[Rfam]
The family of this 145-nucleotide RNA sequence from Lachnospiraceae bacterium 10-1 is "Ribosomal protein L10 leader".
NCBI's taxonomy places the organism under Bacteria, Bacillati, Clostridia, Lachnospirales, Lachnospiraceae.
A reference for the family is Zengel and Lindahl (1994), "Diverse mechanisms for regulating ribosomal protein synthesis in Escherichia coli", Prog Nucleic Acid Res Mol Biol.
Rfam links the family to the GO term regulation of gene expression.
This family is a putative r-protein leader autoregulatory structure found in B. subtilis and other low-GC Gram-positive bacteria. It is located in the 5' untranslated regions of mRNAs encoding ribosomal proteins L10 and L12 (rplJ-rplL). A Rho-independent transcription terminator structure that is probably involved in regulation is included at the 3' end.
Nucleotides: 145
Stems, first nucleotide, its partner, number of pairs: 028080006034063005111130008
Number, partner (000 for none) and nucleotide at each position: 001000a002000a003000g004000g005000u006000c007000a008000u009000u010000u011000u012000g013000a014000c015000u016000a017000u018000g019000c020000c021000g022000a023000a024000g025000a026000c027000a028080g029079u030078a031077g032076g033075u034063g035062u036061c037060c038059c039000a040000a041000g042000u043000g044000a045000g046000a047000a048000a049000a050000g051000a052000a053000g054000c055000u056000g057000a058000a059038g060037g061036g062035a063034c064000g065000u066000a067000a068000g069000c070000u071000u072000a073000u074000c075033a076032c077031c078030u079029a080028c081000c082000g083000a084000g085000g086000a087000g088000a089000a090000g091000a092000g093000u094000u095000u096000u097000u098000a099000u100000g101000g102000u103000a104000a105000a106000u107000u108000c109000u110000a111130c112129c113128c114127u115126u116125c117124c118123g119000c120000c121000u122000u123118c124117g125116g126115a127114a128113g129112g130111g131000u132000u133000u134000u135000u136000u137000a138000u139000c140000a141000a142000u143000a144000a145000g